Alphaproteobacteria transfer-messenger RNA: a 360-nucleotide sequence from Parvibaculum lavamentivorans. The source organism's lineage runs through Bacteria, Pseudomonadati, Alphaproteobacteria, Hyphomicrobiales and Parvibaculum lavamentivorans. By type it is a non-coding RNA gene.

RNA sequence: AGACUUCAAAUAAGGAAUUUUGCCCCUAUAUUGAUGGGUGCCGGACGGAUUUCCGACCGGCUAUGGCGAUAAACGGAUUGUGUAAUAAACCAUUCGGACCCGGGGGCAGUACCCGGCGCCUCCACCAAUUUUCCCUGUCGCGGCAGGGACCUUGGGGGCGAACCAGGAUCGACGAGGGUGUAAAGACAGUCUUUUUGCCCGGCAUGGUUCCGCCGUCAUCGGGCCGUUUUAUAGUUGCCAACGACAACUAUGCUGAGGCGCGUCUCGCUGCUUAAUGCAGUGCGACAACCUCGAUUUAAGUCCUUACCUUUAGCCGGGUAAGGCGGGGUUCGGGGGCACCUGGCAACAGAAGCCCCCACU
Numbered sequence: 001a002g003a004c005u006u007c008a009a010a011u012a013a014g015g016a017a018u019u020u021u022g023c024c025c026c027u028a029u030a031u032u033g034a035u036g037g038g039u040g041c042c043g044g045a046c047g048g049a050u051u052u053c054c055g056a057c058c059g060g061c062u063a064u065g066g067c068g069a070u071a072a073a074c075g076g077a078u079u080g081u082g083u084a085a086u087a088a089a090c091c092a093u094u095c096g097g098a099c100c101c102g103g104g105g106g107c108a109g110u111a112c113c114c115g116g117c118g119c120c121u122c123c124a125c126c127a128a129u130u131u132u133c134c135c136u137g138u139c140g141c142g143g144c145a146g147g148g149a150c151c152u153u154g155g156g157g158g159c160g161a162a163c164c165a166g167g168a169u170c171g172a173c174g175a176g177g178g179u180g181u182a183a184a185g186a187c188a189g190u191c192u193u194u195u196u197g198c199c200c201g202g203c204a205u206g207g208u209u210c211c212g213c214c215g216u217c218a219u220c221g222g223g224c225c226g227u228u229u230u231a232u233a234g235u236u237g238c239c240a241a242c243g244a245c246a247a248c249u250a251u252g253c254u255g256a257g258g259c260g261c262g263u264c265u266c267g268c269u270g271c272u273u274a275a276u277g278c279a280g281u282g283c284g285a286c287a288a289c290c291u292c293g294a295u296u297u298a299a300g301u302c303c304u305u306a307c308c309u310u311u312a313g314c315c316g317g318g319u320a321a322g323g324c325g326g327g328g329u330u331c332g333g334g335g336g337c338a339c340c341u342g343g344c345a346a347c348a349g350a351a352g353c354c355c356c357c358a359c360u
Stems, first nucleotide, its partner, number of pairs: 040061005065199005075193002078189004090178002094175003100116005117160007200215004205226003210222002326341004332357006